A member of the RNA family "ARRPOF RNA", 257 nucleotides long. By type it is a small RNA. It is one of the family's seed sequences.
RNA sequence: AAAAAUCUUACUAACUAUAUUUGUUUUACAAUUUGUACUAUAGAUAAAAUCUUAAGUACAGCCACUCUGCUCGAAGUGGUACAGCGGUCUAGCGACUGGUGUUAUGAAUUGAAGCAAGGUGCGAAACGACCUAUAACAGUUUUGGAGGUACUCUGUGCGGGUAUUCUAACAACGAUAUAAUUUAGAAAGUAAGCUAAAUCGGGACUUCUGGGGCGGAGUACAGAAGAAUAGACGAACUAGUCUAUGUUAGAAUAAGU
Numbered sequence: 001a002a003a004a005a006u007c008u009u010a011c012u013a014a015c016u017a018u019a020u021u022u023g024u025u026u027u028a029c030a031a032u033u034u035g036u037a038c039u040a041u042a043g044a045u046a047a048a049a050u051c052u053u054a055a056g057u058a059c060a061g062c063c064a065c066u067c068u069g070c071u072c073g074a075a076g077u078g079g080u081a082c083a084g085c086g087g088u089c090u091a092g093c094g095a096c097u098g099g100u101g102u103u104a105u106g107a108a109u110u111g112a113a114g115c116a117a118g119g120u121g122c123g124a125a126a127c128g129a130c131c132u133a134u135a136a137c138a139g140u141u142u143u144g145g146a147g148g149u150a151c152u153c154u155g156u157g158c159g160g161g162u163a164u165u166c167u168a169a170c171a172a173c174g175a176u177a178u179a180a181u182u183u184a185g186a187a188a189g190u191a192a193g194c195u196a197a198a199u200c201g202g203g204a205c206u207u208c209u210g211g212g213g214c215g216g217a218g219u220a221c222a223g224a225a226g227a228a229u230a231g232a233c234g235a236a237c238u239a240g241u242c243u244a245u246g247u248u249a250g251a252a253u254a255a256g257u
Stems, first nucleotide, its partner, number of pairs: 007193006034060006041054002062079005081102003085098005117132004123143005150219006162254009173201003181198005205226006228245006